[Rfam]
RNA sequence: ACCCCAUGAUAUAAGCCGGCAGAAAAAAUACUCCCUAGUUUUUUCUGUGACUAUGAUUGGGAACAUAGACUUUUUUCCGAUGUGUGUAUAUUUCGAGGCGUCUUACCUGCUUCAAAAUAAAGAUUUAUUCAGAAUACA
Numbered sequence: 001a002c003c004c005c006a007u008g009a010u011a012u013a014a015g016c017c018g019g020c021a022g023a024a025a026a027a028a029u030a031c032u033c034c035c036u037a038g039u040u041u042u043u044u045c046u047g048u049g050a051c052u053a054u055g056a057u058u059g060g061g062a063a064c065a066u067a068g069a070c071u072u073u074u075u076u077c078c079g080a081u082g083u084g085u086g087u088a089u090a091u092u093u094c095g096a097g098g099c100g101u102c103u104u105a106c107c108u109g110c111u112u113c114a115a116a117a118u119a120a121a122g123a124u125u126u127a128u129u130c131a132g133a134a135u136a137c138a
Base pairs, nucleotide, nucleotide: 019048020047021046022045023044024043025042026041077132079130080129089119090118091117092116093115095113096112097111098110099109